The family of this 260-nucleotide RNA sequence from Caldicoprobacter faecalis is "BsrG". It is annotated as a small RNA. Rfam describes the family as follows. bsrE, bsrG and bsrH pair through intermolecular interactions with antisense sRNAs. They form type I toxin/antitoxin system that includes an mRNA encoding for a short, toxic peptide (bsrE, bsrG and bsrH) and an antitoxin that is comprised of an antisense RNA. bsrG encodes a 39-amino-acid toxin, and the 180 nucleotide antisense sRNA called SR4 acts as the antitoxin (they overlap by 123 nucleotides). SR4 interaction with the 3'UTR of bsrG RNA promotes bsrG degradation and inhibits its translation. BsrG interferes with cell envelope biosynthesis, causes membrane invaginations and delocalisation of the cell wall synthesis and initiates autolysis. bsrE RNA encodes 30 amino-acid toxin peptide. Lineage of the source: Bacteria > Bacillati > Bacillota > Caldicoprobacteraceae > Caldicoprobacter.

RNA sequence: CAAGGUAAUCGGAUACAGCAGGGUGCGGUUGCCACUUCCCCACAGAAGGGAGGUGGUGCUUAUGAUGAGCGUUUUCGAGGCGUUGUCCUUGAUGAUAACCUUCGGAUUGUUUAUCAUAGCACUUUUGGAGUUCCUCUCCAAAAAGAAAAUAACCACCCUCCUGGCCCAGGGUGGUUAUAAAUUCUUUAAAUAGCCAUCUCAGGGUAACCGCACUUUGCGGUGCCGAUUACCUUGCUUAUAUUAUUAUAUCAUAAAACAAU
Numbered sequence: 001c002a003a004g005g006u007a008a009u010c011g012g013a014u015a016c017a018g019c020a021g022g023g024u025g026c027g028g029u030u031g032c033c034a035c036u037u038c039c040c041c042a043c044a045g046a047a048g049g050g051a052g053g054u055g056g057u058g059c060u061u062a063u064g065a066u067g068a069g070c071g072u073u074u075u076c077g078a079g080g081c082g083u084u085g086u087c088c089u090u091g092a093u094g095a096u097a098a099c100c101u102u103c104g105g106a107u108u109g110u111u112u113a114u115c116a117u118a119g120c121a122c123u124u125u126u127g128g129a130g131u132u133c134c135u136c137u138c139c140a141a142a143a144a145g146a147a148a149a150u151a152a153c154c155a156c157c158c159u160c161c162u163g164g165c166c167c168a169g170g171g172u173g174g175u176u177a178u179a180a181a182u183u184c185u186u187u188a189a190a191u192a193g194c195c196a197u198c199u200c201a202g203g204g205u206a207a208c209c210g211c212a213c214u215u216u217g218c219g220g221u222g223c224c225g226a227u228u229a230c231c232u233u234g235c236u237u238a239u240a241u242u243a244u245u246a247u248a249u250c251a252u253a254a255a256a257c258a259a260u
Stems, first nucleotide, its partner, number of pairs: 001234005007228003011224001012209001014204001021160003025154001032056003036052005067133004072128002081094002104125003174194003210223004240260003244254004

A search with the family's covariance model found it, with a score of 56 bits.